[Rfam]
RNA sequence: GAACUGGUUCGUAGAGCCACGAGCAGGGUAAACAAAAGAAAGCUCAAUGAGA
Numbered sequence: 001g002a003a004c005u006g007g008u009u010c011g012u013a014g015a016g017c018c019a020c021g022a023g024c025a026g027g028g029u030a031a032a033c034a035a036a037a038g039a040a041a042g043c044u045c046a047a048u049g050a051g052a
Stems, first nucleotide, its partner, number of pairs: 007024005014045004
RNA: 6A RNA